[Rfam]
Nucleotides: 087
Base pairs, nucleotide, nucleotide: 001086002085004083005082006081007080008079009078010077011076012075014073015072016071017070018069019068020067021066023064024063025062026061028059029058030057031056032055033054034053035052036051037050038049040047041046
Number, partner (000 for none) and nucleotide at each position: 001086c002085a003000c004083g005082u006081c007080a008079g009078c010077g011076c012075g013000a014073u015072g016071u017070g018069c019068u020067g021066a022000c023064u024063c025062a026061g027000c028059a029058g030057g031056a032055a033054a034053u035052u036051g037050c038049g039000c040047u041046c042000c043000c044000u045000a046041g047040g048000a049038c050037g051036c052035g053034a054033u055032u056031u057030u058029c059028u060000a061026c062025u063024g064023a065000g066021u067020c068019a069018g070017u071016a072015c073014a074000g075012c076011g077010c078009g079008c080007u081006g082005a083004c084000a085002u086001g087000g